This 82-nucleotide sequence from Clupea harengus belongs to the Rfam family "Small nucleolar RNA SNORD79". The family has 28 seed sequences and 784 matches in Rfam 15.1. A reference for the family is Smith and Steitz (1998), "Classification of gas5 as a multi-small-nucleolar-RNA (snoRNA) host gene and a member of the 5'-terminal oligopyrimidine gene family reveals common features of snoRNA host genes", Mol Cell Biol. A search with the family's covariance model found it, with a score of 68 bits. Rfam classes the family as a C/D-box small nucleolar RNA. Rfam describes the family as follows. snoRNA U79 or Z22 is found in intron 7 of the gas5 gene in humans and is also present in mice.

RNA sequence: UGCUGUAUAUGAUGACUUUUGUUUAAAACAUUGGGAAUCUCUCUGAAUAAGAGUGAAGGAGAACUUUUUUUCUGAUGCGGCG
Numbered sequence: 001u002g003c004u005g006u007a008u009a010u011g012a013u014g015a016c017u018u019u020u021g022u023u024u025a026a027a028a029c030a031u032u033g034g035g036a037a038u039c040u041c042u043c044u045g046a047a048u049a050a051g052a053g054u055g056a057a058g059g060a061g062a063a064c065u066u067u068u069u070u071u072c073u074g075a076u077g078c079g080g081c082g
Stems, first nucleotide, its partner, number of pairs: 001082007